[Rfam]
RNA sequence: GCUGUACAUGAUGACAACUUGGCUCCCUCUACUGAGUGCUAUGAGGAUAAAAGCCAUACGUUACCCAACUUCUUCUGACCUGCAGC
Number, nucleotide and partner (000 for none) at each position: 001g086002c085003u084004g083005u082006a081007c000008a000009u000010g000011a000012u000013g000014a000015c000016a000017a000018c000019u000020u000021g000022g000023c000024u000025c000026c000027c000028u000029c000030u000031a000032c000033u000034g000035a000036g000037u000038g000039c000040u000041a000042u000043g000044a000045g000046g000047a000048u000049a000050a000051a000052a000053g000054c000055c000056a000057u000058a000059c000060g000061u000062u000063a000064c000065c000066c000067a000068a000069c000070u000071u000072c000073u000074u000075c000076u000077g000078a000079c000080c000081u006082g005083c004084a003085g002086c001

The family of this 86-nucleotide sequence from Eleutherodactylus coqui is "Small nucleolar RNA SNORD100". For this family Rfam cites "Purified box C/D snoRNPs are able to reproduce site-specific 2'-O-methylation of target RNA in vitro" (Galardi et al., Mol Cell Biol, 2002). The family's RNA type in Rfam is C/D-box small nucleolar RNA. The family has 26 seed sequences and 838 matches in Rfam 15.1. The base pairs follow the family's consensus structure, which was predicted with RNAalifold.